[Rfam]
RNA sequence: CCCAGGGUGUUGCCCUGGGCUUAGGAAUCGCGCCCCUUCGGGGCU
Numbered sequence: 001c002c003c004a005g006g007g008u009g010u011u012g013c014c015c016u017g018g019g020c021u022u023a024g025g026a027a028u029c030g031c032g033c034c035c036c037u038u039c040g041g042g043g044c045u
Stems, first nucleotide, its partner, number of pairs: 001019007032044005

A member of the RNA family "Acido-Lenti-1 RNA" from Gemmata sp. SH-PL17, 45 nucleotides long. By type it is a small RNA. Pairs were carried over by alignment from the consensus structure, which is taken from published work. NCBI's taxonomy places the organism under Bacteria, Pseudomonadati, Gemmatales, Gemmataceae, Gemmata.